[Rfam]
RNA: U4 spliceosomal RNA
Organism: Puma concolor
RNA sequence: AGCUUUGUGCAGUGGCAGUAUCGUAGCCAAUGAGGUUUAUCUGAGGCGUGAUUAUUGCUAAUUGAAAACUUUCCUAAAAAUAUCCUUCCCUGUUGGGGCACCUCGGUGGUUCAGUUGGUUGAGCAUCUGACUUUGGCUCAGGUCA
Numbered sequence: 001a002g003c004u005u006u007g008u009g010c011a012g013u014g015g016c017a018g019u020a021u022c023g024u025a026g027c028c029a030a031u032g033a034g035g036u037u038u039a040u041c042u043g044a045g046g047c048g049u050g051a052u053u054a055u056u057g058c059u060a061a062u063u064g065a066a067a068a069c070u071u072u073c074c075u076a077a078a079a080a081u082a083u084c085c086u087u088c089c090c091u092g093u094u095g096g097g098g099c100a101c102c103u104c105g106g107u108g109g110u111u112c113a114g115u116u117g118g119u120u121g122a123g124c125a126u127c128u129g130a131c132u133u134u135g136g137c138u139c140a141g142g143u144c145a
Base pairs, nucleotide, nucleotide: 020052021051022050023049024048026047027046028045034042035041085123086122087121089118090117092115093114094113095112096111097110134145135144136143137142
Dot-bracket structure: ...................(((((.(((.....((.....))..))))))))................................(((.((.((((((............)))))).))..)))..........((((....))))